A member of the RNA family "int-alpA RNA" from Ralstonia pickettii, 68 nucleotides long.
The base pairs follow the family's consensus structure, which is taken from published work.
About the family: Acidobacteria (1 example), Planctomycetes (1 example), Proteobacteria.
RNA sequence: GCCGCGCCUAGAUCGGCCAAUCGAAAACGGGUUCUCUCACCCGCUGGCGCUGCUCUCUUUUUCGAGGG
Numbered sequence: 001g002c003c004g005c006g007c008c009u010a011g012a013u014c015g016g017c018c019a020a021u022c023g024a025a026a027a028c029g030g031g032u033u034c035u036c037u038c039a040c041c042c043g044c045u046g047g048c049g050c051u052g053c054u055c056u057c058u059u060u061u062u063c064g065a066g067g068g
Base pairs, nucleotide, nucleotide: 001053002052004050005049006048007047008046011022012021013020028043029042030041031040034068035067036066037065038064
It is one of the family's seed sequences.